A member of the RNA family "Archaeal small subunit ribosomal RNA" from Thermoplasmatales archaeon SCGC AB-539-C06, 500 nucleotides of a longer RNA. Rfam links the family to the GO terms ribosome and structural constituent of ribosome. On this family, see Yusupov et al., Science 2001: "Crystal structure of the ribosome at 5.5 A resolution". The family's consensus secondary structure is taken from published work. The family has 86 seed sequences and 709 matches in Rfam 15.1. It scores 1499 bits against the family's covariance model.
RNA sequence: AUUCCGGUUGAUCCUGGCGGAGAUCACUGCUAUUGGGAUUCGACUAAGCCAUGCGAGUCGAGAGGGUUCGGCCCUCGGCUGACGGCUCAGUAACACGUGGAUAAUCUGCCUUAGGUGGAGGAUAAUCUCGGGAAACUGAGGAUAAUACUCCAUAGAUCUAGGAUGCUGGAAUGCAUCUAGAUUGAAAGCUCUGGCGCCUAAGGAUGAGUCUGCGGACUAUCAGGUUGUAGUCAGGGUAAAGACCUGACUAGCCUACGACGGAUACGGGUUGUGAGAGCAAUAACCCGGAGACGAUAUCUGAGACACGAUAUCGGGCCCUACGGGGCGCAGCAGGCGCGAAAACUUCACACUGUGCGAAAGCGCGAUGAGGGAAUCCCAAGUGUUUGCUCGUAAGAGUAAACUGUUUCUUUGUUUAAAACGCAGAGAGAGUAAGGGCUGGGUAAGACGGGUGCCAGCCGCCGCGGUAAUACCUGCAGCUCAAGUGGUGAUCAUUAUUAUUG
Numbered sequence: 001a002u003u004c005c006g007g008u009u010g011a012u013c014c015u016g017g018c019g020g021a022g023a024u025c026a027c028u029g030c031u032a033u034u035g036g037g038a039u040u041c042g043a044c045u046a047a048g049c050c051a052u053g054c055g056a057g058u059c060g061a062g063a064g065g066g067u068u069c070g071g072c073c074c075u076c077g078g079c080u081g082a083c084g085g086c087u088c089a090g091u092a093a094c095a096c097g098u099g100g101a102u103a104a105u106c107u108g109c110c111u112u113a114g115g116u117g118g119a120g121g122a123u124a125a126u127c128u129c130g131g132g133a134a135a136c137u138g139a140g141g142a143u144a145a146u147a148c149u150c151c152a153u154a155g156a157u158c159u160a161g162g163a164u165g166c167u168g169g170a171a172u173g174c175a176u177c178u179a180g181a182u183u184g185a186a187a188g189c190u191c192u193g194g195c196g197c198c199u200a201a202g203g204a205u206g207a208g209u210c211u212g213c214g215g216a217c218u219a220u221c222a223g224g225u226u227g228u229a230g231u232c233a234g235g236g237u238a239a240a241g242a243c244c245u246g247a248c249u250a251g252c253c254u255a256c257g258a259c260g261g262a263u264a265c266g267g268g269u270u271g272u273g274a275g276a277g278c279a280a281u282a283a284c285c286c287g288g289a290g291a292c293g294a295u296a297u298c299u300g301a302g303a304c305a306c307g308a309u310a311u312c313g314g315g316c317c318c319u320a321c322g323g324g325g326c327g328c329a330g331c332a333g334g335c336g337c338g339a340a341a342a343c344u345u346c347a348c349a350c351u352g353u354g355c356g357a358a359a360g361c362g363c364g365a366u367g368a369g370g371g372a373a374u375c376c377c378a379a380g381u382g383u384u385u386g387c388u389c390g391u392a393a394g395a396g397u398a399a400a401c402u403g404u405u406u407c408u409u410u411g412u413u414u415a416a417a418a419c420g421c422a423g424a425g426a427g428a429g430u431a432a433g434g435g436c437u438g439g440g441u442a443a444g445a446c447g448g449g450u451g452c453c454a455g456c457c458g459c460c461g462c463g464g465u466a467a468u469a470c471c472u473g474c475a476g477c478u479c480a481a482g483u484g485g486u487g488a489u490c491a492u493u494a495u496u497a498u499u500g
Base pairs, nucleotide, nucleotide: 004020005019006018008016022490023489024488025487026486027485028484029483030482031481033379034378035377036376037375038374039373040372041371042337048335049334050333052332053331054330057079058078059077062076063075064074065073066072067071086290087289088288096214097213098212099211100210101209102208105207106206109203110202111201112200113199114198115197117151118150119149120148126141127140128139129138130137131136156182157181158180159179160178161177162176165174166173188195189194217261218260223253224252225251228250229249230248231247232246233245234244235243265287266286267285268284269280270279271278272277292313293312294311295310296309297308315326316325317324318323343369345368346367347366351364352363353362354361355360382401383400384399385398386397387396388395389394406426407425408424409423410422411421412420433479434478435477436476437475438474446473447472448471449470455462456461